[Rfam]
RNA sequence: AGAUCAUAUCAAAGAGAGCUUGUGGGCUCAAAACCAGGCACUCUUAACACUGUGGCCAAAGAUUGAAGUUCUCCAUAGGAUGUAAUUGUCACUCAAUAGUGCUAUGUUUUCCUUAAGACACAUAAGA
Numbered sequence: 001a002g003a004u005c006a007u008a009u010c011a012a013a014g015a016g017a018g019c020u021u022g023u024g025g026g027c028u029c030a031a032a033a034c035c036a037g038g039c040a041c042u043c044u045u046a047a048c049a050c051u052g053u054g055g056c057c058a059a060a061g062a063u064u065g066a067a068g069u070u071c072u073c074c075a076u077a078g079g080a081u082g083u084a085a086u087u088g089u090c091a092c093u094c095a096a097u098a099g100u101g102c103u104a105u106g107u108u109u110u111c112c113u114u115a116a117g118a119c120a121c122a123u124a125a126g127a
Stems, first nucleotide, its partner, number of pairs: 002057001004055004014045005019038001021037001024035002070120001072118002077113004085105002088102001090101004
RNA: Small nucleolar RNA SNORA25